Fluoride riboswitch aptamer (crcB RNA motif): a 72-nucleotide RNA sequence from Cuneatibacter caecimuris. The family's consensus secondary structure is taken from published work. It scores 47 bits against the family's covariance model. Taxonomically the source falls in Cuneatibacter (Bacteria, Bacillati, Clostridia, Lachnospirales).

RNA sequence: AAUUUUACGGGGAAUGAAGUUCUCCCUAGGGCAACCUGAACCGCUUAUUAAGCUGAUGACUUCUGUGAUGGU
Numbered sequence: 001a002a003u004u005u006u007a008c009g010g011g012g013a014a015u016g017a018a019g020u021u022c023u024c025c026c027u028a029g030g031g032c033a034a035c036c037u038g039a040a041c042c043g044c045u046u047a048u049u050a051a052g053c054u055g056a057u058g059a060c061u062u063c064u065g066u067g068a069u070g071g072u
Stems, first nucleotide, its partner, number of pairs: 010026004016063006043053003
Dot-bracket structure: .........[[[[..((((((.]]]]................(((.....)))....)))))).........